Record summary:
D12-methyl RNA: a 64-nucleotide RNA sequence. Rfam's curators put it in the seed alignment. The family's consensus secondary structure is taken from published work. The family's RNA type in Rfam is small RNA.
[Rfam]
Nucleotides: 064
Stems, first nucleotide, its partner, number of pairs: 001025008032052005
Number, partner (000 for none) and nucleotide at each position: 001025c002024g003023u004022u005021g006020c007019g008018g009000a010000c011000u012000u013000g014000c015000u016000c017000c018008c019007c020006g021005c022004a023003a024002c025001g026000g027000g028000u029000g030000a031000g032052g033051c034050c035049g036048g037000c038000a039000u040000a041000g042000c043000a044000u045000a046000a047000a048036c049035c050034g051033g052032u053000a054000g055000g056000g057000c058000g059000g060000g061000a062000a063000c064000g